[Rfam]
The record is an 89-nucleotide RNA sequence from Carlito syrichta, which matches "mir-449 microRNA precursor family" in Rfam.
Rfam 15.1 lists 325 matches to the family in 192 species.
Taxonomically the source falls in Carlito (Eukaryota, Gnathostomata, Teleostomi, Boreoeutheria).

Nucleotides: 089
Base pairs, nucleotide, nucleotide: 001089002088003087004086005085006084007083008082010080012078013077016075017074019072020071021070022069023068024067027066028065029064030063031062032061034059043052
Number, partner (000 for none) and nucleotide at each position: 001089u002088g003087g004086a005085u006084g007083u008082g009000u010080c011000a012078g013077a014000u015000a016075g017074g018000c019072a020071g021070u022069g023068c024067a025000u026000u027066g028065c029064u030063a031062g032061c033000u034059g035000g036000c037000u038000g039000u040000u041000a042000u043052a044000a045000u046000u047000u048000u049000a050000u051000u052043u053000u054000a055000a056000c057000a058000g059034u060000u061032g062031c063030u064029a065028g066027u067024u068023g069022c070021a071020c072019u073000u074017c075016c076000c077013u078012c079000g080010g081000u082008u083007g084006c085005a086004u087003u088002c089001a